[Rfam]
RNA sequence: AUAUGUUCUCAGGGCGGGGUGAAAGUCCCCACCGGCGGUAAUGAGCGCGAUGCGCUUGAAGCCCGCGAGCGCCUCUCUUGAAAGAGAGAGGGUCAGCAGAUUCGGUGCAACUCCGAAGCCGACGGUCAUAGUCCGGAUGAAAGAGAACGGGU
Numbered sequence: 001a002u003a004u005g006u007u008c009u010c011a012g013g014g015c016g017g018g019g020u021g022a023a024a025g026u027c028c029c030c031a032c033c034g035g036c037g038g039u040a041a042u043g044a045g046c047g048c049g050a051u052g053c054g055c056u057u058g059a060a061g062c063c064c065g066c067g068a069g070c071g072c073c074u075c076u077c078u079u080g081a082a083a084g085a086g087a088g089a090g091g092g093u094c095a096g097c098a099g100a101u102u103c104g105g106u107g108c109a110a111c112u113c114c115g116a117a118g119c120c121g122a123c124g125g126u127c128a129u130a131g132u133c134c135g136g137a138u139g140a141a142a143g144a145g146a147a148c149g150g151g152u
Base pairs, nucleotide, nucleotide: 004149005148006147007146008145009144010143017029018028019027031132032131033121034120035066036065037064038063061119062118069097070096101117102116103115104114105113123135124134125133
RNA: FMN riboswitch aptamer (RFN element)